Rfam assigns this 121-nucleotide sequence from Citrifermentans bemidjiense to the family "Molybdenum/Tungsten riboswitch aptamer (Moco RNA motif)". Lineage of the source: Bacteria > Desulfuromonadia > Geobacterales > Geobacteraceae > Citrifermentans bemidjiense. The match comes from Rfam's covariance-model search (71 bits). Rfam links the family to the GO terms tungstate binding, regulation of gene expression and molybdenum ion binding.
RNA sequence: UAAGCAGAUAGUCUCCGAGCCGCAGCCUUCUAAAGGGAGUACCCCCACGAAGCUUUGGCCGUUGGGUGCCGCCGGAAACGGCGCCGCCUCCCCUUUGGAAAGGAGAACCGCCGCCGCUUUC
Numbered sequence: 001u002a003a004g005c006a007g008a009u010a011g012u013c014u015c016c017g018a019g020c021c022g023c024a025g026c027c028u029u030c031u032a033a034a035g036g037g038a039g040u041a042c043c044c045c046c047a048c049g050a051a052g053c054u055u056u057g058g059c060c061g062u063u064g065g066g067u068g069c070c071g072c073c074g075g076a077a078a079c080g081g082c083g084c085c086g087c088c089u090c091c092c093c094u095u096u097g098g099a100a101a102g103g104a105g106a107a108c109c110g111c112c113g114c115c116g117c118u119u120u121c
Stems, first nucleotide, its partner, number of pairs: 004114001012106005019059004024054003028051003035045003064089005070083005090098002